A member of the RNA family "MIR2118 microRNA precursor family" from Zea mays, 171 nucleotides long. The base pairs follow the family's consensus structure, which was predicted with RNAalifold. Taxonomically the source falls in Zea (Eukaryota, Streptophytina, Andropogoneae, Tripsacinae). Rfam links the family to the GO terms miRNA-mediated post-transcriptional gene silencing and RISC complex. A reference for the family is Zhu et al. (2008), "A diverse set of microRNAs and microRNA-like small RNAs in developing rice grains", Genome Res.
[Rfam]
RNA sequence: GUCUUGAAUAGGAAGAUGGAGAUGGCCUAAGAACAGCAAGAAUGGGAACAUGGAGGAAAGCCUGAACUAUUUGUUUUAUCCUCUAGCUACAGAGGUACAGGCUUGGUUUGGUUUUUCCAGAUGCCUCACAUUCCUUUUGUUCUUGAGCACUCGUUCCUUUUCCUUAUGGCU
Number, nucleotide and partner (000 for none) at each position: 001g000002u000003c000004u000005u000006g000007a000008a000009u000010a161011g160012g159013a158014a000015g156016a155017u000018g000019g000020a000021g152022a151023u000024g000025g000026c147027c000028u145029a144030a143031g142032a141033a140034c139035a138036g000037c000038a135039a000040g133041a132042a131043u130044g129045g000046g127047a126048a000049c123050a122051u121052g000053g000054a000055g118056g117057a116058a115059a114060g113061c000062c000063u000064g000065a000066a000067c000068u000069a000070u000071u000072u000073g000074u000075u000076u000077u000078a000079u000080c000081c000082u000083c000084u000085a000086g000087c000088u000089a000090c000091a000092g000093a000094g000095g000096u000097a000098c000099a000100g000101g000102c000103u000104u000105g000106g000107u000108u000109u000110g000111g000112u000113u060114u059115u058116u057117c056118c055119a000120g000121a051122u050123g049124c000125c000126u047127c046128a000129c044130a043131u042132u041133c040134c000135u038136u000137u000138u035139g034140u033141u032142c031143u030144u029145g028146a000147g026148c000149a000150c000151u022152c021153g000154u000155u016156c015157c000158u013159u012160u011161u010162c000163c000164u000165u000166a000167u000168g000169g000170c000171u000